Rfam assigns this 81-nucleotide RNA from Aphanothece hegewaldii to the family "Photosynthesis regulatory RNA1".
It is annotated as a small RNA.
Formerly known as Syr1 discovered in Synechocystis sp PCC 6803, is a regulatory factor controlling photosynthetic functions. PsrR1 interacts with the ribosome binding regions of several photosynthesis-related mRNAs. In particular, psaL mRNA is processed by RNase E only in the presence of PsrR1.
For this family Rfam cites "The small regulatory RNA SyR1/PsrR1 controls photosynthetic functions in cyanobacteria" (Georg et al., Plant Cell, 2014).
Gene Ontology terms of the family: regulation of translation and regulation of photosynthesis.
[Rfam]
RNA sequence: ACAAGAUUUGUUUCGGUAUCUCUCCCAUUGACAUUGAGUUCUCCUACAACAGCACUAACCUCGAAAUUGAUCGGGGUUUUU
Number, nucleotide and partner (000 for none) at each position: 001a000002c000003a000004a000005g000006a000007u000008u000009u000010g000011u000012u000013u000014c000015g000016g000017u000018a000019u000020c000021u000022c000023u000024c000025c000026c000027a000028u000029u000030g000031a000032c000033a000034u000035u000036g000037a000038g000039u000040u000041c000042u000043c000044c000045u000046a000047c000048a000049a000050c000051a077052g000053c000054a000055c000056u000057a000058a000059c076060c075061u074062c073063g072064a071065a000066a000067u000068u000069g000070a000071u064072c063073g062074g061075g060076g059077u051078u000079u000080u000081u000